[Rfam]
RNA sequence: UGUCUCCUCCACUUAAACAUAAGUGGAUUCCAACCCAGGACUCGUUCCUGGGUUUUUUUUA
Numbered sequence: 001u002g003u004c005u006c007c008u009c010c011a012c013u014u015a016a017a018c019a020u021a022a023g024u025g026g027a028u029u030c031c032a033a034c035c036c037a038g039g040a041c042u043c044g045u046u047c048c049u050g051g052g053u054u055u056u057u058u059u060u061a
Stems, first nucleotide, its partner, number of pairs: 008027008032054008
The record is a 61-nucleotide RNA sequence from Polynucleobacter antarcticus, which matches "Betaproteobacteria toxic small RNA" in Rfam. The source organism's lineage runs through Bacteria, Pseudomonadota, Burkholderiales, Burkholderiaceae and Polynucleobacter. It scores 54 bits against the family's covariance model. For this family Rfam cites "A vast collection of microbial genes that are toxic to bacteria" (Kimelman et al., Genome Res, 2012).